The family of this 75-nucleotide sequence from Tranquillimonas alkanivorans is "Singlet oxygen resistance RNA X". SorX (RSs2461)like SorY is a singlet oxygen induced sRNA that counteracts oxidative stress by targeting mRNA for a transporter in Rhodobacter. Rfam 15.1 lists 528 matches to the family in 356 species. It is annotated as a small RNA. The literature on the family includes a 2009 paper in Mol Microbiol by Berghoff et al., "Photooxidative stress-induced and abundant small RNAs in Rhodobacter sphaeroides".

RNA sequence: AGCCCGACUCCGUGACCGGGUAACGACACGGAACCUCCCUGUUGGACUGGCCCGGGCUUCGGCCCGGGCCUUUUU
Numbered sequence: 001a002g003c004c005c006g007a008c009u010c011c012g013u014g015a016c017c018g019g020g021u022a023a024c025g026a027c028a029c030g031g032a033a034c035c036u037c038c039c040u041g042u043u044g045g046a047c048u049g050g051c052c053c054g055g056g057c058u059u060c061g062g063c064c065c066g067g068g069c070c071u072u073u074u075u
Stems, first nucleotide, its partner, number of pairs: 010031005016025001050069008